A member of the RNA family "mir-133 microRNA precursor family" from Agrilus planipennis, 71 nucleotides long. The source organism's lineage runs through Eukaryota, Bilateria, Allotriocarida, Dicondylia and Agrilus. It scores 66 bits against the family's covariance model. From the family's description: mir-133 was first experimentally characterised in mouse and homologues have since been discovered in several other species. The mature sequence is excised from the 3' arm of the hairpin. On this family, see Lagos-Quintana et al., Curr Biol 2002: "Identification of tissue-specific microRNAs from mouse".

RNA sequence: CAGCUUUAGCUGGUUGAAUCCGGGUCAAAUUUUUUUUGUAGUAUUUGGUCCCCUUCAACCAGCUGUAGUUG
Numbered sequence: 001c002a003g004c005u006u007u008a009g010c011u012g013g014u015u016g017a018a019u020c021c022g023g024g025u026c027a028a029a030u031u032u033u034u035u036u037u038g039u040a041g042u043a044u045u046u047g048g049u050c051c052c053c054u055u056c057a058a059c060c061a062g063c064u065g066u067a068g069u070u071g
Stems, first nucleotide, its partner, number of pairs: 003069003008064011022050002025048006